[Rfam]
RNA sequence: UAGAAUAAUGUAGAUAAGGGAAGUCGGCAAAAUAGAUCUGUAACUUCGGGAUAAGGAUUGGCUCUAAGGGUUAGGUAGGAGAAGCGAGGGAAGGAUGAUGGGAGAUGGGAUGGGCGGAUUCGGUUCCUCACGGGGCUGGGCCUGCUUGACCUGUCUUUCAUGUACUUUCCCUAGGCGGCCUACAAUGAAUAACCAACUUAGAACUGGUACGGACAAGGGGAAUCUGACUGUCUAAUUAAAACAUAGCAUUGCGAUGGCCAGAAAGUGGUGUUGACGCAAUGUGAUUUCUGCCCAGUGCUCUGAAUGUCAAAGUGAAGAAAUUCAACCAAGCGCGGGUAAACGGCGGGAGUAACUAUGACUCUCUUAAGGUAGCCAAAUGCCUCGUCAUCUAAUUAGUGACGCGCAUGAAUGGAUUAACGAGAUUCCCACUGUCCCUAUCUACUAUCUAGCGAAACCACAGCCAAGGGAACGGGCUUGGCAGA
Numbered sequence: 001u002a003g004a005a006u007a008a009u010g011u012a013g014a015u016a017a018g019g020g021a022a023g024u025c026g027g028c029a030a031a032a033u034a035g036a037u038c039u040g041u042a043a044c045u046u047c048g049g050g051a052u053a054a055g056g057a058u059u060g061g062c063u064c065u066a067a068g069g070g071u072u073a074g075g076u077a078g079g080a081g082a083a084g085c086g087a088g089g090g091a092a093g094g095a096u097g098a099u100g101g102g103a104g105a106u107g108g109g110a111u112g113g114g115c116g117g118a119u120u121c122g123g124u125u126c127c128u129c130a131c132g133g134g135g136c137u138g139g140g141c142c143u144g145c146u147u148g149a150c151c152u153g154u155c156u157u158u159c160a161u162g163u164a165c166u167u168u169c170c171c172u173a174g175g176c177g178g179c180c181u182a183c184a185a186u187g188a189a190u191a192a193c194c195a196a197c198u199u200a201g202a203a204c205u206g207g208u209a210c211g212g213a214c215a216a217g218g219g220g221a222a223u224c225u226g227a228c229u230g231u232c233u234a235a236u237u238a239a240a241a242c243a244u245a246g247c248a249u250u251g252c253g254a255u256g257g258c259c260a261g262a263a264a265g266u267g268g269u270g271u272u273g274a275c276g277c278a279a280u281g282u283g284a285u286u287u288c289u290g291c292c293c294a295g296u297g298c299u300c301u302g303a304a305u306g307u308c309a310a311a312g313u314g315a316a317g318a319a320a321u322u323c324a325a326c327c328a329a330g331c332g333c334g335g336g337u338a339a340a341c342g343g344c345g346g347g348a349g350u351a352a353c354u355a356u357g358a359c360u361c362u363c364u365u366a367a368g369g370u371a372g373c374c375a376a377a378u379g380c381c382u383c384g385u386c387a388u389c390u391a392a393u394u395a396g397u398g399a400c401g402c403g404c405a406u407g408a409a410u411g412g413a414u415u416a417a418c419g420a421g422a423u424u425c426c427c428a429c430u431g432u433c434c435c436u437a438u439c440u441a442c443u444a445u446c447u448a449g450c451g452a453a454a455c456c457a458c459a460g461c462c463a464a465g466g467g468a469a470c471g472g473g474c475u476u477g478g479c480a481g482a
Base pairs, nucleotide, nucleotide: 001448002447003446004445010442011441012440013439014438015437016436018434019433020432035059036058037057038056039055044049060205061204063202064201065200066199067198068197206210218427219426220425221424222423223422224421225419226418229243230242231241246282247281248280249279250278251277252276253275254272257269258268259267260266286413287412288411290344291343292342295341296340297337298336300335301334302333305332306331307330313324314323315322316321345363346362347361348360349359350358364368384400385399386398387397388396461478462477463476464475465474
A member of the RNA family "Archaeal large subunit ribosomal RNA" from Absidia repens, 482 nucleotides of a longer RNA. A reference for the family is Yusupov et al. (2001), "Crystal structure of the ribosome at 5.5 A resolution", Science. The match comes from Rfam's covariance-model search (1521 bits).